[Rfam]
RNA: Ribosomal protein L20 leader
RNA sequence: AAUGACAAGUAGAAGCACCCGCUUCUCACCUGAUCGGCGCAUGAAGCAGUUGGCAGGUCUCGCAUUUUUCUAAUUAGUUUCGCACUAUUGUAGUGCGUAUGAUGAACGAAAUGUCGUGUGGGUGCCGUCUGUGUACCGACACUUUUUUUAUGUA
Numbered sequence: 001a002a003u004g005a006c007a008a009g010u011a012g013a014a015g016c017a018c019c020c021g022c023u024u025c026u027c028a029c030c031u032g033a034u035c036g037g038c039g040c041a042u043g044a045a046g047c048a049g050u051u052g053g054c055a056g057g058u059c060u061c062g063c064a065u066u067u068u069u070c071u072a073a074u075u076a077g078u079u080u081c082g083c084a085c086u087a088u089u090g091u092a093g094u095g096c097g098u099a100u101g102a103u104g105a106a107c108g109a110a111a112u113g114u115c116g117u118g119u120g121g122g123u124g125c126c127g128u129c130u131g132u133g134u135a136c137c138g139a140c141a142c143u144u145u146u147u148u149u150a151u152g153u154a
Stems, first nucleotide, its partner, number of pairs: 011026006028058003036051003039047002117141003121137005